[Rfam]
Shown here is a 114-nucleotide sequence from Stutzerimonas stutzeri, a member of the family "Pseudomonas rnk leader". Rfam's curators put it in the seed alignment. Gene Ontology term of the family: regulation of gene expression. Lineage of the source: Bacteria > Pseudomonadota > Gammaproteobacteria > Stutzerimonas > Stutzerimonas stutzeri.
RNA sequence: UGCAGCCCGCGAGUUUACUGGCCUGCGGGCUGGGGUCUUGCUUAUUCGGGCUGCUGUGAUAGUGUCUCCGGCAGGUCAGCAAAACCCCGCCUUCGGGCGGGGUUUUGCUUUUUU
Numbered sequence: 001u002g003c004a005g006c007c008c009g010c011g012a013g014u015u016u017a018c019u020g021g022c023c024u025g026c027g028g029g030c031u032g033g034g035g036u037c038u039u040g041c042u043u044a045u046u047c048g049g050g051c052u053g054c055u056g057u058g059a060u061a062g063u064g065u066c067u068c069c070g071g072c073a074g075g076u077c078a079g080c081a082a083a084a085c086c087c088c089g090c091c092u093u094c095g096g097g098c099g100g101g102g103u104u105u106u107g108c109u110u111u112u113u114u
Stems, first nucleotide, its partner, number of pairs: 002054005018034002021031001023029001080107012